[Rfam]
RNA sequence: GUCGCGCCUAGCCCGACGGGGCGAAAACCGGGCACCUUCCCCGGCUGGCGCGGCACCUAUUGAAGG
Numbered sequence: 001g002u003c004g005c006g007c008c009u010a011g012c013c014c015g016a017c018g019g020g021g022c023g024a025a026a027a028c029c030g031g032g033c034a035c036c037u038u039c040c041c042c043g044g045c046u047g048g049c050g051c052g053g054c055a056c057c058u059a060u061u062g063a064a065g066g
Stems, first nucleotide, its partner, number of pairs: 001054008011022004028044005035066005
RNA: int-alpA RNA